[Rfam]
RNA sequence: UUGGGCCUGAACCUGGCAUACAAUGUAGAAUUCUGUGUUAGUAUACAAACAGCUACAUUGUCUGCUGGGUUUCAGGCUACCUGG
Numbered sequence: 001u002u003g004g005g006c007c008u009g010a011a012c013c014u015g016g017c018a019u020a021c022a023a024u025g026u027a028g029a030a031u032u033c034u035g036u037g038u039u040a041g042u043a044u045a046c047a048a049a050c051a052g053c054u055a056c057a058u059u060g061u062c063u064g065c066u067g068g069g070u071u072u073c074a075g076g077c078u079a080c081c082u083g084g
Stems, first nucleotide, its partner, number of pairs: 013068006020061009033052004
This 84-nucleotide sequence from Scyliorhinus torazame belongs to the Rfam family "mir-221 microRNA precursor family". The family's consensus secondary structure was predicted with RNAalifold. The literature on the family includes a 2008 paper in J Virol by Yao et al., "MicroRNA profile of Marek's disease virus-transformed T-cell line MSB-1: predominance of virus-encoded microRNAs". Its family is annotated with RISC complex and miRNA-mediated post-transcriptional gene silencing in the Gene Ontology.